Shown here is a 233-nucleotide RNA sequence from Eggerthellaceae bacterium zg-893, a member of the family "Lysine riboswitch aptamer". About the family: Riboswitches are metabolite binding domains within certain messenger RNAs that serve as precision sensors for their corresponding targets. The match comes from Rfam's covariance-model search (74 bits). Pairs were carried over by alignment from the consensus structure, which is taken from published work. Lineage of the source: Bacteria > Bacillati > Coriobacteriia > Eggerthellales > Eggerthellaceae.
[Rfam]
RNA sequence: UUUCGUGACAGAGGCGCGACGAGCCAUCAGUAGCCCCGACAAACGCCAGGAAGCGUGGGGUGAAAGGGGCCGUCGCCGAAAGACCGGACCGGUUCCUGACGGUGCGUGUCUUGGGGUGCAGGAAAACAUUCUGCACACUGUCGUUUGGAGAGUCCGAUCAGCGCUAUCUUCCCCGAUCAAACGGGAAAAGAUAGCCUUGACCGGCCUUUCCGCAACGGAGAGCUGUCAUGGUU
Numbered sequence: 001u002u003u004c005g006u007g008a009c010a011g012a013g014g015c016g017c018g019a020c021g022a023g024c025c026a027u028c029a030g031u032a033g034c035c036c037c038g039a040c041a042a043a044c045g046c047c048a049g050g051a052a053g054c055g056u057g058g059g060g061u062g063a064a065a066g067g068g069g070c071c072g073u074c075g076c077c078g079a080a081a082g083a084c085c086g087g088a089c090c091g092g093u094u095c096c097u098g099a100c101g102g103u104g105c106g107u108g109u110c111u112u113g114g115g116g117u118g119c120a121g122g123a124a125a126a127c128a129u130u131c132u133g134c135a136c137a138c139u140g141u142c143g144u145u146u147g148g149a150g151a152g153u154c155c156g157a158u159c160a161g162c163g164c165u166a167u168c169u170u171c172c173c174c175g176a177u178c179a180a181a182c183g184g185g186a187a188a189a190g191a192u193a194g195c196c197u198u199g200a201c202c203g204g205c206c207u208u209u210c211c212g213c214a215a216c217g218g219a220g221a222g223c224u225g226u227c228a229u230g231g232u233u
Stems, first nucleotide, its partner, number of pairs: 006228006016076006023070003033061006080112005085106002088103004113139002116136008141218005